RNA sequence: CAUAGUAGCAGCGUUAGUCGGGUAAGAAUCCCGACGACCGAAAGAGCAAGGGUUCCUCGACAAUGUUCAUCAGUCGAGGGUUAGCCGGUCCUAAGUCCCGUCGUAAUUCGAGCGGGACAAAAGGGAAACAGGUUAAUAUUCCUGUGCUAUCAUACACCCAAAGCUGACGCCUCAGGAAACAUCGAGCCGGGCUAUCGCCCGGUCGAAUCAAGGAAACCCGUGGAAGCCGUAAUGGCACGAAGCGAGUGAAGCUUGAAAUAGGGAAACUCGAUGGUACCUGGGGUCCAUGAAAAAGCGAGUAUGAUAUCCGUACCGAGAUCCGACACAGGUGCUCUGGCGGCGAAAGCCAAGGUCUGU
Number, nucleotide and partner (000 for none) at each position: 001c000002a000003u000004a000005g000006u000007a000008g000009c000010a000011g000012c000013g000014u000015u000016a000017g035018u034019c033020g032021g031022g030023u000024a000025a000026g000027a000028a000029u000030c022031c021032c020033g019034a018035c017036g354037a353038c352039c351040g000041a000042a000043a000044g334045a333046g332047c331048a000049a000050g314051g313052g000053u000054u000055c079056c078057u077058c076059g075060a074061c000062a000063a000064u072065g071066u000067u000068c000069a000070u000071c065072a064073g000074u060075c059076g058077a057078g056079g055080g000081u000082u000083a000084g000085c000086c310087g309088g308089u000090c124091c123092u000093a000094a000095g118096u117097c116098c115099c114100g113101u111102c110103g109104u000105a000106a000107u000108u000109c103110g102111a101112g000113c100114g099115g098116g097117a096118c095119a000120a000121a000122a000123g091124g090125g000126a000127a000128a145129c144130a143131g142132g141133u000134u000135a000136a000137u000138a000139u000140u000141c132142c131143u130144g129145u128146g000147c000148u306149a305150u304151c303152a302153u301154a300155c299156a000157c000158c000159c000160a000161a000162a000163g296164c295165u294166g000167a000168c000169g284170c283171c282172u281173c280174a279175g278176g277177a000178a000179a000180c273181a272182u271183c270184g269185a000186g203187c202188c201189g200190g199191g000192c000193u000194a000195u000196c000197g000198c000199c190200c189201g188202g187203u186204c000205g000206a000207a000208u256209c255210a254211a253212g000213g000214a000215a000216a000217c246218c000219c244220g243221u242222g000223g000224a000225a000226g236227c235228c234229g000230u000231a000232a000233u000234g228235g227236c226237a000238c000239g000240a000241a000242g221243c220244g219245a000246g217247u000248g000249a000250a000251g000252c000253u211254u210255g209256a208257a000258a000259u000260a000261g000262g267263g000264a000265a000266a000267c262268u000269c184270g183271a182272u181273g180274g000275u000276a000277c176278c175279u174280g173281g172282g171283g170284u169285c000286c000287a000288u000289g000290a000291a000292a000293a000294a165295g164296c163297g000298a000299g155300u154301a153302u152303g151304a150305u149306a148307u000308c088309c087310g086311u000312a000313c051314c050315g000316a000317g000318a000319u000320c329321c328322g000323a000324c000325a000326c000327a000328g321329g320330u000331g047332c046333u045334c044335u349336g348337g347338c346339g000340g000341c000342g000343a000344a000345a000346g338347c337348c336349a335350a000351g039352g038353u037354c036355u000356g000357u000

The record is a 357-nucleotide part of an RNA from Salarchaeum sp. JOR-1, which matches "Archaeal large subunit ribosomal RNA" in Rfam. A search with the family's covariance model found it, with a score of 2877 bits.